RNA sequence: UGGUCCGCAGCUCACCAAGUCACUGCCGUCUCCGAAACGGGGAUAUGCUGAACCUGCGU
Numbered sequence: 001u002g003g004u005c006c007g008c009a010g011c012u013c014a015c016c017a018a019g020u021c022a023c024u025g026c027c028g029u030c031u032c033c034g035a036a037a038c039g040g041g042g043a044u045a046u047g048c049u050g051a052a053c054c055u056g057c058g059u
Stems, first nucleotide, its partner, number of pairs: 001017004029043004

Annotation:
A member of the RNA family "COG3860 RNA" from Celeribacter neptunius, 59 nucleotides long. NCBI's taxonomy places the organism under Bacteria, Pseudomonadati, Alphaproteobacteria, Rhodobacterales, Celeribacter. It scores 44 bits against the family's covariance model.